RNA sequence: CAGCAAGCCUUCCAGCGUGGGGGGGCCUGCCGUGGCCCCCGCCAUUCCUACAGCGCUUGCCAGAGUAACCCCUGGGAUGGUUUGAGGCCUCUCCCCGCCUCCUCCGGGGGGCGGUUAUAGAAAUCCCAGACAGUU
Numbered sequence: 001c002a003g004c005a006a007g008c009c010u011u012c013c014a015g016c017g018u019g020g021g022g023g024g025g026c027c028u029g030c031c032g033u034g035g036c037c038c039c040c041g042c043c044a045u046u047c048c049u050a051c052a053g054c055g056c057u058u059g060c061c062a063g064a065g066u067a068a069c070c071c072c073u074g075g076g077a078u079g080g081u082u083u084g085a086g087g088c089c090u091c092u093c094c095c096c097g098c099c100u101c102c103u104c105c106g107g108g109g110g111g112c113g114g115u116u117a118u119a120g121a122a123a124u125c126c127c128a129g130a131c132a133g134u135u
Base pairs, nucleotide, nucleotide: 003060004059005058006057007056008055018044019043020042023038024037025036026035027034073128074127075126076125077124088114089113091111092110093109095107096106097105
A member of the RNA family "Small nucleolar RNA SNORA9" from Trogon melanurus, 135 nucleotides long.
The organism belongs to Trogon, within Eukaryota.
Rfam's curators write: ACA9 is a member of the H/ACA class of snoRNA that guide the sites of modification of uridines to pseudouridines.
Rfam links the family to the GO terms RNA processing and nucleolus.
Rfam 15.1 lists 1,202 matches to the family in 518 species.